RNA sequence: CUGUGCGAUGAUGGCAUACCAUCUUUCGGGUCUGAACGUGAUGAUACCCAAUUUCUACUGAGCACGU
Numbered sequence: 001c002u003g004u005g006c007g008a009u010g011a012u013g014g015c016a017u018a019c020c021a022u023c024u025u026u027c028g029g030g031u032c033u034g035a036a037c038g039u040g041a042u043g044a045u046a047c048c049c050a051a052u053u054u055c056u057a058c059u060g061a062g063c064a065c066g067u
Base pairs, nucleotide, nucleotide: 002066003065004064005063006062